Exoribonuclease-resistant RNA (xrRNA) plant-infecting virus (class 3): a 48-nucleotide RNA from Umbravirus papaveri. About the family: Exoribonuclease-resistant RNA (xrRNA) plant-infecting virus (class 3) is a ncRNA that was reported in Plant viruses. A search with the family's covariance model found it, with a score of 32 bits. Its family is annotated with viral RNA genome replication in the Gene Ontology. On this family, see Steckelberg et al., mBio 2018: "Exoribonuclease-Resistant RNAs Exist within both Coding and Noncoding Subgenomic RNAs".
RNA sequence: CUGCUAGCCGGGCACUGUGUUGCAAGCGCCGGAAGCUUAGUCGCAGGG
Numbered sequence: 001c002u003g004c005u006a007g008c009c010g011g012g013c014a015c016u017g018u019g020u021u022g023c024a025a026g027c028g029c030c031g032g033a034a035g036c037u038u039a040g041u042c043g044c045a046g047g048g
Stems, first nucleotide, its partner, number of pairs: 008032002011030001012027002015046005